[Rfam]
Nucleotides: 597
Stems, first nucleotide, its partner, number of pairs: 024055001025053005035042002065072002076103004086094002106307004113151001115149005121143002124140004157248006165242004173233008184200001186199004203207001210220002257278007284301005341348002365376004412578011430561001432559002435556002582597004
Number, partner (000 for none) and nucleotide at each position: 001000u002000g003000a004000u005000c006000u007000c008000a009000g010000c011000u012000c013000a014000a015000g016000c017000a018000a019000g020000a021000a022000g023000a024055c025053c026052c027051g028050c029049u030000g031000a032000a033000u034000u035042u036041a037000a038000g039000c040000a041036u042035a043000u044000a045000a046000u047000u048000a049029a050028g051027c052026g053025g054000a055024g056000g057000a058000a059000a060000a061000g062000a063000a064000a065072c066071u067000a068000a069000c070000c071066a072065g073000g074000a075000u076103u077102c078101c079100c080000u081000c082000a083000g084000u085000a086094a087093g088000g089000g090000c091000g092000a093087c094086u095000g096000a097000a098000g099000c100079g101078g102077g103076a104000g105000u106307a107306g108305c109304u110000c111000a112000a113151g114000a115149u116148g117147u118146g119145a120000a121143u122142c123000u124140g125139c126138g127137c128000c129000g130000u131000u132000c133000u134000g135000c136000g137127g138126c139125g140124c141000c142122g143121a144000a145119u146118u147117g148116u149115g150000g151113u152000c153000u154000a155000u156000a157248g158247g159246c160245g161244u162243g163000u164000g165242c166241g167240u168239u169000a170000c171000c172000u173233g174232g175231c176230c177229g178228g179227g180226c181000c182000a183000a184200g185000u186199c187198c188197c189196u190000u191000g192000g193000a194000a195000c196189a197188g198187g199186g200184c201000g202000g203207c204000u205000g206000a207203g208000a209000g210220g211219g212000u213000g214000a215000g216000a217000c218000c219211c220210c221000c222000g223000u224000u225000c226180g227179c228178c229177u230176g231175g232174c233173c234000u235000u236000u237000g238000g239168a240167g241166c242165g243162c244161g245160c246159g247158u248157c249000g250000a251000c252000g253000a254000g255000u256000c257278g258277a259276g260275u261274u262273g263272u264000u265000u266000g267000g268000g269000a270000u271000u272263g273262c274261a275260g276259c277258u278257c279000a280000a281000a282000g283000u284301g285300g286299g287298u288297g289000g290000u291000a292000a293000a294000u295000u296000c297288c298287a299286u300285c301284u302000a303000a304109a305108g306107c307106u308000a309000a310000a311000u312000a313000c314000u315000g316000g317000u318000g319000g320000g321000a322000g323000a324000c325000c326000g327000a328000u329000a330000g331000c332000g333000u334000a335000c336000a337000a338000g339000u340000a341348c342347c343000g344000u345000g346000a347342g348341g349000g350000a351000a352000a353000g354000a355000u356000g357000c358000a359000a360000c361000a362000g363000a364000a365376c366375u367374u368373u369000g370000a371000a372000a373368a374367g375366a376365g377000a378000g379000u380000u381000a382000a383000a384000g385000a386000g387000u388000a389000c390000c391000u392000g393000a394000a395000a396000u397000u398000g399000c400000u401000g402000a403000a404000a405000a406000g407000g408000a409000a410000g411000c412578g413577a414576a415575g416574g417573a418572a419571a420570c421569c422568a423000g424000u425000g426000u427000u428000a429000g430561c431000u432559g433558c434000g435556u436555c437000a438000u439000a440000c441000u442000u443000c444000c445000c446000c447000g448000u449000u450000c451000g452000c453000u454000u455000g456000c457000g458000g459000u460000c461000g462000g463000g464000g465000c466000g467000c468000u469000g470000u471000g472000g473000c474000c475000a476000g477000c478000g479000u480000u481000g482000u483000c484000a485000g486000g487000c488000u489000u490000g491000g492000c493000u494000g495000g496000g497000u498000u499000g500000g501000g502000c503000g504000g505000a506000a507000a508000u509000g510000c511000g512000c513000g514000u515000a516000g517000g518000g519000a520000g521000a522000u523000u524000a525000g526000a527000c528000c529000u530000g531000c532000g533000u534000g535000u536000g537000u538000c539000u540000g541000c542000g543000u544000u545000c546000g547000a548000c549000u550000u551000g552000c553000c554000u555436g556435a557000g558433g559432u560000u561430g562000a563000c564000g565000a566000a567000a568422u569421g570420g571419u572418u573417u574416u575415c576414u577413u578412u579000u580000u581000c582597c583596c584595g585594u586000c587000u588000u589000g590000a591000a592000a593000c594585a595584c596583g597582g